[Rfam]
RNA sequence: ACAACAUUCGGACCGUCAUGCGUCGGUCUACUGAGCAAUUUCACUCCCUCGGUGGAAGAUUUUCCCUUUGUCGU
Numbered sequence: 001a002c003a004a005c006a007u008u009c010g011g012a013c014c015g016u017c018a019u020g021c022g023u024c025g026g027u028c029u030a031c032u033g034a035g036c037a038a039u040u041u042c043a044c045u046c047c048c049u050c051g052g053u054g055g056a057a058g059a060u061u062u063u064c065c066c067u068u069u070g071u072c073g074u
Base pairs, nucleotide, nucleotide: 004071005070006069010065011064012063022060023059024058027056028055029054030053031052032051033050034049035048
RNA: mir-2774 microRNA precursor family